Shown here is a 73-nucleotide sequence from Yimella sp. cx-51, a member of the family "tRNA". By type it is a transfer RNA. It scores 74 bits against the family's covariance model. Taxonomically the source falls in Yimella (Bacteria, Bacillati, Actinomycetota, Dermacoccaceae). The family's consensus secondary structure is taken from published work.

RNA sequence: GGGCCUUUAGCUCAAUCGGUAGAGCAGUGGACUUUUAAUCCAUUGGUUCCGGGUUCGAGCCCCGGAGGGCCCA
Numbered sequence: 001g002g003g004c005c006u007u008u009a010g011c012u013c014a015a016u017c018g019g020u021a022g023a024g025c026a027g028u029g030g031a032c033u034u035u036u037a038a039u040c041c042a043u044u045g046g047u048u049c050c051g052g053g054u055u056c057g058a059g060c061c062c063c064g065g066a067g068g069g070c071c072c073a
Stems, first nucleotide, its partner, number of pairs: 001072007010025004027043005049065005